[Rfam]
RNA sequence: UAUUAGACACUCUGUGCCGGAGGUCUGUAGGCCAAAACAACAGAAGUCCGGCACAGAGCGUCUAGUU
Numbered sequence: 001u002a003u004u005a006g007a008c009a010c011u012c013u014g015u016g017c018c019g020g021a022g023g024u025c026u027g028u029a030g031g032c033c034a035a036a037a038c039a040a041c042a043g044a045a046g047u048c049c050g051g052c053a054c055a056g057a058g059c060g061u062c063u064a065g066u067u
Stems, first nucleotide, its partner, number of pairs: 004064005010058012024044005030038001
The family of this 67-nucleotide sequence from Eptesicus fuscus is "mir-9338 microRNA precursor family".
The source organism's lineage runs through Eukaryota, Gnathostomata, Chiroptera, Yangochiroptera and Eptesicus.
Rfam's curators put it in the seed alignment.
The family has 3 seed sequences and 80 matches in Rfam 15.1.
The base pairs follow the family's consensus structure, which was predicted with RNAalifold.